A member of the RNA family "mir-8799 microRNA precursor family" from Canis lupus, 75 nucleotides long. The family has 7 seed sequences and 20,638 matches in Rfam 15.1. Its Rfam clan is "mir-8791 microRNA precursor clan". The base pairs follow the family's consensus structure, which was predicted with RNAalifold. Gene Ontology terms of the family: RISC complex and miRNA-mediated post-transcriptional gene silencing.
[Rfam]
RNA sequence: GGGGGGACGCCGGAUCCUGGGCUGUGUCCCGGCGCCUGAGCUGUUGGAUUCACGCUCCCGGCCUCGCAGCCCCCU
Numbered sequence: 001g002g003g004g005g006g007a008c009g010c011c012g013g014a015u016c017c018u019g020g021g022c023u024g025u026g027u028c029c030c031g032g033c034g035c036c037u038g039a040g041c042u043g044u045u046g047g048a049u050u051c052a053c054g055c056u057c058c059c060g061g062c063c064u065c066g067c068a069g070c071c072c073c074c075u
Stems, first nucleotide, its partner, number of pairs: 001075006009067002012063002016061002019058003023054004027048003030043004